[Rfam]
RNA sequence: AGAUAAGUUUUCUAGGGUUCCGCAGUUUAUAGCUGGUCAGGUCCAAGAGAAAACGCACAGUAAAAUGUGUUCACGGAAGGAUAAAAGCCUGGGAGAU
Numbered sequence: 001a002g003a004u005a006a007g008u009u010u011u012c013u014a015g016g017g018u019u020c021c022g023c024a025g026u027u028u029a030u031a032g033c034u035g036g037u038c039a040g041g042u043c044c045a046a047g048a049g050a051a052a053a054c055g056c057a058c059a060g061u062a063a064a065a066u067g068u069g070u071u072c073a074c075g076g077a078a079g080g081a082u083a084a085a086a087g088c089c090u091g092g093g094a095g096a097u
Stems, first nucleotide, its partner, number of pairs: 007054006015044002020041002022038001023035005055070005072092001074095001078090003